Rfam assigns this 540-nucleotide part of an RNA from Clostridium novyi to the family "Bacterial small subunit ribosomal RNA". Gene Ontology terms of the family: structural constituent of ribosome and ribosome. On this family, see Yusupov et al., Science 2001: "Crystal structure of the ribosome at 5.5 A resolution". Clan: SSU clan. A search with the family's covariance model found it, with a score of 1628 bits.

RNA sequence: UAAAUUGAGAGUUUGAUCCUGGCUCAGGACGAACGCUGGCGGCGUGCCUAACACAUGCAAGUCGAGCGAUGAAGCUUCCUUCGGGAAGUGGAUUAGCGGCGGACGGGUGAGUAACACGUGGGUAACCUGCCUCAAAGAGUGGGAUAGCCUCCCGAAAGGGAGAUUAAUACCGCAUAACAUUAUUUUACGGCAUCGUAAAAUAAUCAAAGGAGCAAUCCGCUUUGAGAUGGACCCGCGGCGCAUUAGCUAGUUGGUGAGGUAACGGCUCACCAAGGCAACGAUGCGUAGCCGACCUGAGAGGGUGAUCGGCCACAUUGGAACUGAGACACGGUCCAGACUCCUACGGGAGGCAGCAGUGGGGAAUAUUGCGCAAUGGGGGAAACCCUGACGCAGCAACGCCGCGUGAGUGAUGAAGGUUUUCGGAUCGUAAAACUCUGUCAUUAGGGACGAUAAUGACGGUACCUAAUGAGGAAGCCACGGCUAACUACGUGCCAGCAGCCGCGGUAAUACGUAGGUGGCAAGCGUUGUCCGGAUUUACUG
Dot-bracket structure: ........(((((.......))))).((((.((((((.(((((((((....(((.(((..(((..((.((...((((((....))))))..))..)))))......(((.......(((((((..((...(((((((.((((....(.(((((....))))).).....)))).....(((((((.(((....))).)))))))....(((....))).)))))))..))))))))).(((....(((..((((((((.......)))))))))))......)))..((((((((....))))...))))))).(((((............))))).((((....))))...)))))).).....(.(((...(((((....))))).)))).)).))))))..((((......((((....)))).....))))...(((((((...(.......)....))))))...)..(((((......(((((.....((....)).......)))))))))).))))))))))..........